Shown here is a 210-nucleotide RNA sequence from Ciona savignyi, a member of the family "Small nucleolar RNA U3". Taxonomically the source falls in Ciona (Eukaryota, Bilateria, Deuterostomia, Ascidiacea). On this family, see Zwieb, Nucleic Acids Res 1997: "The uRNA database". Pairs were carried over by alignment from the consensus structure, which is taken from published work. Clan: U3 clan. Its family is annotated with RNA processing and nucleolus in the Gene Ontology.

[Rfam]
RNA sequence: AAGAUCAUACUUUUAGGGAUCAUUUCUAUAGUGUGCAUCUUGAAAACGUCAUCAAAUUAUGACGAAACCUCAACUACGAUGAUGAGUUGUAGGGAUUCCUUCUGAGCAUGAAGCUUGGUUCGUUGUAUCUUCGGAUGUUGCGAACUAUUAAGGAUUGUUCUUGGAUUUCCGUUCCGAGAUCUGGGAGGAAGGAAUCUCCGGCUGAGUAGU
Numbered sequence: 001a002a003g004a005u006c007a008u009a010c011u012u013u014u015a016g017g018g019a020u021c022a023u024u025u026c027u028a029u030a031g032u033g034u035g036c037a038u039c040u041u042g043a044a045a046a047c048g049u050c051a052u053c054a055a056a057u058u059a060u061g062a063c064g065a066a067a068c069c070u071c072a073a074c075u076a077c078g079a080u081g082a083u084g085a086g087u088u089g090u091a092g093g094g095a096u097u098c099c100u101u102c103u104g105a106g107c108a109u110g111a112a113g114c115u116u117g118g119u120u121c122g123u124u125g126u127a128u129c130u131u132c133g134g135a136u137g138u139u140g141c142g143a144a145c146u147a148u149u150a151a152g153g154a155u156u157g158u159u160c161u162u163g164g165a166u167u168u169c170c171g172u173u174c175c176g177a178g179a180u181c182u183g184g185g186a187g188g189a190a191g192g193a194a195u196c197u198c199c200g201g202c203u204g205a206g207u208a209g210u
Stems, first nucleotide, its partner, number of pairs: 001041005006035006014028005048063005074209004093197011106158003117146007125138005161184009